[Rfam]
This 89-nucleotide RNA sequence from Streptomyces zhaozhouensis belongs to the Rfam family "TPP riboswitch aptamer (THI element)". About the family: Vitamin B(1) in its active form thiamin pyrophosphate (TPP) is an essential coenzyme that is synthesised by coupling of pyrimidine and thiazole moieties in bacteria.

RNA sequence: CCACGGGAGCCCGGCCGCACCGGGCUGAGAGGGAGGCUCGCGGCCUCCGACCGUACGUACCUGAUCCGGGUCAUGCCGGCGCAGGGAGG
Numbered sequence: 001c002c003a004c005g006g007g008a009g010c011c012c013g014g015c016c017g018c019a020c021c022g023g024g025c026u027g028a029g030a031g032g033g034a035g036g037c038u039c040g041c042g043g044c045c046u047c048c049g050a051c052c053g054u055a056c057g058u059a060c061c062u063g064a065u066c067c068g069g070g071u072c073a074u075g076c077c078g079g080c081g082c083a084g085g086g087a088g089g
Base pairs, nucleotide, nucleotide: 001089002088003054004053005052006051009025010024011023012022013021032048033047034046035045036044037043038042060085061084062083063082066079067078068077069076